[Rfam]
RNA: Small nucleolar RNA SNORA74
Organism: Corythaixoides concolor
RNA sequence: UCCAGCGGUAGUCAGCUACCCGUUGCUGUGCAGUGCCUGAGGUAGUGUUAUGCUGCUGGGAGAGAAAGGCGCUGCCAGUCACUCCUGGCACCGCCGGUGCUGUUCUAGUGCCAGUUGGUGCCAGGUUUUGGCAGCACUCUGCAUGCUUGAGAGUGGAGUAACUUCUCGGCGGAGUUAAUCCUAGAUUGGAUGCAGACAAC
Numbered sequence: 001u002c003c004a005g006c007g008g009u010a011g012u013c014a015g016c017u018a019c020c021c022g023u024u025g026c027u028g029u030g031c032a033g034u035g036c037c038u039g040a041g042g043u044a045g046u047g048u049u050a051u052g053c054u055g056c057u058g059g060g061a062g063a064g065a066a067a068g069g070c071g072c073u074g075c076c077a078g079u080c081a082c083u084c085c086u087g088g089c090a091c092c093g094c095c096g097g098u099g100c101u102g103u104u105c106u107a108g109u110g111c112c113a114g115u116u117g118g119u120g121c122c123a124g125g126u127u128u129u130g131g132c133a134g135c136a137c138u139c140u141g142c143a144u145g146c147u148u149g150a151g152a153g154u155g156g157a158g159u160a161a162c163u164u165c166u167c168g169g170c171g172g173a174g175u176u177a178a179u180c181c182u183a184g185a186u187u188g189g190a191u192g193c194a195g196a197c198a199a200c
Stems, first nucleotide, its partner, number of pairs: 001060009011051002015046006021039002025036002069137001071135007084125009095114001096111001098110004139195006146188001155181003159177007